[Rfam]
RNA sequence: UCUUAGGUUGGUGCAAAAGUAAUUGCGGUUUUUGCCAUUAAAAGUAAUGGCAAAAACGGCAAUUACUUUUGCACCAACUAAAUA
Numbered sequence: 001u002c003u004u005a006g007g008u009u010g011g012u013g014c015a016a017a018a019g020u021a022a023u024u025g026c027g028g029u030u031u032u033u034g035c036c037a038u039u040a041a042a043a044g045u046a047a048u049g050g051c052a053a054a055a056a057c058g059g060c061a062a063u064u065a066c067u068u069u070u071g072c073a074c075c076a077a078c079u080a081a082a083u084a
Stems, first nucleotide, its partner, number of pairs: 001084001003082002006079021028057013

The record is an 84-nucleotide sequence from Pan troglodytes, which matches "mir-548 microRNA precursor family" in Rfam. A reference for the family is Witten et al. (2010), "Ultra-high throughput sequencing-based small RNA discovery and discrete statistical biomarker analysis in a collection of cervical tumours and matched controls", BMC Biol. NCBI's taxonomy places the organism under Eukaryota, Euarchontoglires, Catarrhini, Hominoidea, Pan.